[Rfam]
RNA sequence: UUCCACAGCUACUGGUCUACAGCUGUUCUAAUGUAGCAGUUGUGGCAUACCUCUGUGGGAAAGAAGCUGUUACAUGAUUAAACACCUCUUAGCAAAAUUGAAGUGGGCAUAUGUGUGACAAACAGAA
Number, nucleotide and partner (000 for none) at each position: 001u000002u000003c058004c057005a056006c055007a000008g000009c000010u000011a000012c000013u000014g000015g000016u000017c045018u044019a043020c042021a041022g040023c039024u038025g037026u000027u000028c000029u000030a000031a000032u000033g000034u000035a000036g000037c025038a024039g023040u022041u021042g020043u019044g018045g017046c000047a000048u000049a000050c000051c000052u000053c000054u000055g006056u005057g004058g003059g000060a000061a000062a000063g000064a000065a000066g000067c000068u000069g000070u000071u000072a116073c115074a114075u113076g112077a000078u000079u000080a000081a000082a000083c000084a000085c107086c106087u105088c103089u102090u101091a000092g000093c000094a000095a000096a000097a000098u000099u000100g000101a090102a089103g088104u000105g087106g086107g085108c000109a000110u000111a000112u076113g075114u074115g073116u072117g000118a000119c000120a000121a000122a000123c000124a000125g000126a000127a000
This 127-nucleotide sequence from Crocuta crocuta belongs to the Rfam family "Small nucleolar RNA SNORA41". The family's RNA type in Rfam is H/ACA-box small nucleolar RNA. A search with the family's covariance model found it, with a score of 122 bits. About the family: ACA41 is a member of the H/ACA class of snoRNA that guide the sites of modification of uridines to pseudouridines.